RNA sequence: UCGUGCUAGACGGGGGGGUAGCGGUACCCUAUAACCUGCAAUCCGCUUAGCAGGGUUGAAGUCUACUUUAGCCUAUUUCUUGUAAGGUCUGGCUUAAGUAAGUGGCGUUGACGAUUGGGUCUUACGCAACGAAGCGUUGUGAAUUCCGUCAGAUCCGGAAGGAAGCAGCGGUAAGCAAAUGUCUUCGUGUGCCGUAAGGUUGCCUGGUUCGAGCUAACUGCUUAAGUAACGCUUGGAAGAAAUUGGUGAGGGUAGAUGCACGA
Number, nucleotide and partner (000 for none) at each position: 001u263002c262003g261004u260005g259006c258007u000008a000009g057010a056011c055012g030013g029014g028015g027016g000017g025018g000019u023020a000021g000022c000023g019024g000025u017026a000027c015028c014029c013030u012031a000032u000033a000034a000035c054036c053037u052038g051039c050040a000041a000042u000043c000044c000045g000046c000047u000048u000049a000050g039051c038052a037053g036054g035055g011056u010057u009058g000059a000060a000061g000062u256063c255064u254065a253066c252067u251068u250069u000070a000071g247072c246073c245074u000075a243076u000077u241078u240079c239080u238081u237082g000083u235084a234085a233086g232087g000088u000089c000090u228091g227092g000093c000094u225095u224096a223097a222098g221099u220100a000101a000102g218103u217104g215105g214106c213107g000108u000109u000110g000111a000112c000113g209114a208115u207116u206117g205118g204119g203120u202121c198122u197123u196124a195125c194126g193127c189128a188129a000130c187131g186132a185133a184134g183135c000136g000137u178138u177139g176140u175141g000142a000143a000144u000145u000146c171147c170148g169149u168150c000151a000152g000153a000154u163155c162156c161157g000158g000159a000160a000161g156162g155163a154164a000165g000166c000167a000168g149169c148170g147171g146172u000173a000174a000175g140176c139177a138178a137179a000180u000181g000182u000183c134184u133185u132186c131187g130188u128189g127190u000191g000192c000193c126194g125195u124196a123197a122198g121199g000200u000201u000202g120203c119204c118205u117206g116207g115208u114209u113210c000211g000212a000213g106214c105215u104216a000217a103218c102219u000220g099221c098222u097223u096224a095225a094226g000227u091228a090229a000230c000231g000232c086233u085234u084235g083236g000237a081238a080239g079240a078241a077242a000243u075244u000245g073246g072247u071248g000249a000250g068251g067252g066253u065254a064255g063256a062257u000258g006259c005260a004261c003262g002263a001